Rfam assigns this 103-nucleotide sequence from Lunatimonas lonarensis to the family "Fluoride riboswitch aptamer (crcB RNA motif)".
Lineage of the source: Bacteria > Pseudomonadati > Cytophagia > Cyclobacteriaceae > Lunatimonas.
It scores 40 bits against the family's covariance model.
RNA sequence: UGCCCAUCGGGUGAUGGGGUGCCACCCAAAUAUCAGGGACUUAUCCGAAGUUUUCUGAUUUUUUGAACCGCUUCGCAAGAAUGCUGAUGACUCCUACUUCAAC
Numbered sequence: 001u002g003c004c005c006a007u008c009g010g011g012u013g014a015u016g017g018g019g020u021g022c023c024a025c026c027c028a029a030a031u032a033u034c035a036g037g038g039a040c041u042u043a044u045c046c047g048a049a050g051u052u053u054u055c056u057g058a059u060u061u062u063u064u065g066a067a068c069c070g071c072u073u074c075g076c077a078a079g080a081a082u083g084c085u086g087a088u089g090a091c092u093c094c095u096a097c098u099u100c101a102a103c
Base pairs, nucleotide, nucleotide: 010026011025012024013023016094017093018092019091020090070084071083073081